[Rfam]
Nucleotides: 493
Base pairs, nucleotide, nucleotide: 001174002173003171004170005169006167007166008165009164010163011162012161013160015159058112059111060110061109062108073105074104075103076102077101078100080098089152090151091150092149093148094147095145096144097143178411179410181408182407184405242382244380245379246378247377248376249375250374258367259366260365263362264361268356269355271354272353273352282330283329284328285327287325288324289323290322294318295317296316332344333343334342335341424485425484426483427482429480431478432477433476434475443472444471445470446469447468449465450464451463452462
Number, partner (000 for none) and nucleotide at each position: 001174c002173g003171g004170c005169g006167g007166g008165u009164c010163g011162u012161c013160c014000c015159g016000u017000g018000c019000u020000g021000g022000u023000c024000g025000u026000u027000c028000u029000a030000a031000c032000c033000c034000u035000a036000a037000u038000u039000g040000c041000g042000c043000u044000c045000u046000g047000g048000u049000u050000g051000u052000a053000g054000c055000g056000g057000c058112u059111c060110c061109u062108c063000g064000u065000g066000g067000g068000u069000c070000c071000u072000c073105g074104c075103u076102c077101g078100c079000u080098g081000u082000u083000u084000u085000u086000g087000u088000g089152g090151c091150u092149g093148g094147c095145u096144u097143u098080c099000u100078g101077c102076g103075g104074g105073c106000a107000g108062g109061a110060g111059g112058a113000g114000c115000c116000g117000g118000g119000a120000g121000c122000g123000g124000a125000g126000c127000c128000g129000g130000a131000g132000g133000a134000a135000g136000g137000a138000g139000c140000a141000a142000a143097a144096a145095a146000c147094g148093u149092c150091a151090g152089c153000c154000g155000a156000g157000g158000c159015c160013g161012g162011g163010c164009g165008g166007c167006c168000c169005c170004g171003c172000u173002c174001g175000u176000g177000g178411c179410c180000c181408g182407u183000c184405c185000g186000c187000c188000c189000c190000g191000u192000c193000c194000g195000g196000g197000c198000c199000c200000g201000g202000c203000c204000c205000c206000g207000g208000c209000c210000c211000g212000a213000a214000c215000c216000c217000c218000c219000u220000g221000g222000g223000g224000g225000u226000g227000c228000c229000u230000c231000c232000c233000g234000c235000g236000g237000a238000g239000c240000c241000u242382g243000c244380g245379c246378u247377c248376g249375c250374c251000g252000g253000c254000g255000g256000a257000g258367c259366c260365c261000c262000g263362g264361c265000u266000g267000c268356c269355c270000a271354c272353g273352a274000g275000c276000a277000g278000a279000g280000g281000c282330g283329g284328c285327g286000a287325c288324c289323g290322u291000c292000u293000c294318g295317g296316g297000g298000c299000c300000c301000c302000u303000g304000c305000g306000u307000g308000c309000g310000g311000g312000g313000g314000c315000g316296c317295c318294c319000a320000c321000u322290g323289c324288g325287g326000c327285c328284g329283c330282c331000a332344a333343g334342a335341g336000u337000u338000c339000g340000g341335c342334u343333c344332u345000g346000u347000c348000a349000g350000c351000c352273u353272c354271g355269g356268g357000g358000u359000g360000c361264g362263c363000g364000u365260g366259g367258g368000g369000c370000c371000g372000u373000g374250g375249g376248c377247g378246a379245g380244c381000c382242c383000c384000a385000a386000g387000g388000c389000c390000g391000g392000g393000c394000g395000g396000g397000a398000g399000g400000c401000g402000g403000g404000g405184g406000c407182a408181c409000a410179g411178g412000g413000a414000g415000a416000g417000u418000a419000a420000g421000c422000g423000u424485g425484a426483g427482c428000g429480g430000c431478g432477c433476c434475c435000a436000g437000a438000c439000u440000u441000u442000g443472g444471g445470g446469c447468g448000c449465u450464c451463c452462c453000u454000c455000g456000a457000g458000c459000c460000a461000u462452g463451g464450g465449a466000g467000c468447u469446g470445c471444c472443c473000c474000u475434g476433g477432g478431c479000u480429c481000g482427g483426c484425u485424c486000a487000g488000a489000c490000a491000c492000c493000c
Shown here is a 493-nucleotide RNA sequence from Vombatus ursinus, a member of the family "Vertebrate telomerase RNA". The literature on the family includes a 2000 paper in Cell by Chen et al., "Secondary structure of vertebrate telomerase RNA". The family's RNA type in Rfam is non-coding RNA gene. Telomerase is a ribonucleoprotein reverse transcriptase that synthesises telomeric DNA. Telomerase RNAs differ greatly in sequence and structure between vertebrates, ciliates and yeasts, but they share a 5' pseudoknot structure close to the template sequence. Vertebrate telomerase RNAs have a 3' H/ACA snoRNA-like domain. Pairs were carried over by alignment from the consensus structure, which is taken from published work.